[Rfam]
RNA sequence: AAAAUAGCUCUCUAGGGUUCCGUUUAAAGAGUACUCUUUAAAGUCUGGUCCGAGAGAGAGCGUACAGCUAUACAUAGUUGUAUACACGGAGGGAAAAAAGCCCGGGAGAU
Numbered sequence: 001a002a003a004a005u006a007g008c009u010c011u012c013u014a015g016g017g018u019u020c021c022g023u024u025u026a027a028a029g030a031g032u033a034c035u036c037u038u039u040a041a042a043g044u045c046u047g048g049u050c051c052g053a054g055a056g057a058g059a060g061c062g063u064a065c066a067g068c069u070a071u072a073c074a075u076a077g078u079u080g081u082a083u084a085c086a087c088g089g090a091g092g093g094a095a096a097a098a099a100g101c102c103c104g105g106g107a108g109a110u
Stems, first nucleotide, its partner, number of pairs: 007061006015051002020048002022045001023042006062083008085105001087108001091103003
RNA: Guanidine-I riboswitch aptamer